[Rfam]
Nucleotides: 133
Base pairs, nucleotide, nucleotide: 003058004057005056017044018043019042020041021040024030025029071126072125073124093111094110095109097107099105
Number, partner (000 for none) and nucleotide at each position: 001000c002000c003058c004057u005056c006000c007000u008000a009000c010000a011000a012000a013000g014000g015000c016000u017044u018043g019042u020041c021040u022000g023000u024030g025029g026000c027000u028000c029025u030024c031000a032000g033000u034000c035000u036000u037000u038000a039000u040021a041020g042019a043018c044017a045000u046000a047000u048000a049000a050000g051000a052000a053000g054000g055000a056005g057004a058003g059000a060000u061000a062000a063000a064000g065000a066000a067000a068000u069000g070000u071126g072125g073124a074000c075000u076000u077000g078000g079000a080000g081000a082000a083000g084000u085000c086000u087000u088000g089000g090000g091000c092000c093111a094110g095109c096000u097107u098000a099105c100000u101000c102000u103000a104000u105099g106000c107097a108000u109095g110094c111093u112000u113000a114000a115000g116000a117000u118000c119000a120000a121000c122000u123000u124073u125072c126071c127000c128000a129000c130000a131000a132000a133000g
Small nucleolar RNA SNORA38: a 133-nucleotide RNA sequence from Erinaceus europaeus. The match comes from Rfam's covariance-model search (105 bits). Gene Ontology terms of the family: nucleolus, RNA processing and Cajal body. Taxonomically the source falls in Erinaceus (Eukaryota, Chordata, Dipnotetrapodomorpha, Laurasiatheria). Rfam describes the family as follows. ACA38 is a member of the H/ACA class of snoRNA that guide the sites of modification of uridines to pseudouridines. By type it is an H/ACA-box small nucleolar RNA.